Source information
This 194-nucleotide RNA sequence from Cyclospora cayetanensis belongs to the Rfam family "U2 spliceosomal RNA". It scores 165 bits against the family's covariance model. The base pairs follow the family's consensus structure, which is taken from published work. For this family Rfam cites "The uRNA database" (Zwieb, Nucleic Acids Res, 1997).
RNA sequence: AUACCUUCUCGGCCUUUUGGCUAUGAUCAAGUGUAGUAUCUGUUCUUAUCAGUGUGACAACUGAUAUGGAUCCAACUGGAUCCAACAAUGUCACAAUAAUUUUUGUUUGGGGAGGACCGAGUCUAGAGCUUGCUCUGCUCGCCCUCGAGCGUUGCCCCACCCUUGCACUACUCGGUGGGAGUAGCGUACCCUUC
Numbered sequence: 001a002u003a004c005c006u007u008c009u010c011g012g013c014c015u016u017u018u019g020g021c022u023a024u025g026a027u028c029a030a031g032u033g034u035a036g037u038a039u040c041u042g043u044u045c046u047u048a049u050c051a052g053u054g055u056g057a058c059a060a061c062u063g064a065u066a067u068g069g070a071u072c073c074a075a076c077u078g079g080a081u082c083c084a085a086c087a088a089u090g091u092c093a094c095a096a097u098a099a100u101u102u103u104u105g106u107u108u109g110g111g112g113a114g115g116a117c118c119g120a121g122u123c124u125a126g127a128g129c130u131u132g133c134u135c136u137g138c139u140c141g142c143c144c145u146c147g148a149g150c151g152u153u154g155c156c157c158c159a160c161c162c163u164u165g166c167a168c169u170a171c172u173c174g175g176u177g178g179g180a181g182u183a184g185c186g187u188a189c190c191c192u193u194c
Stems, first nucleotide, its partner, number of pairs: 007026002011022004047066006068083006112146004118141003125136004149187006156179006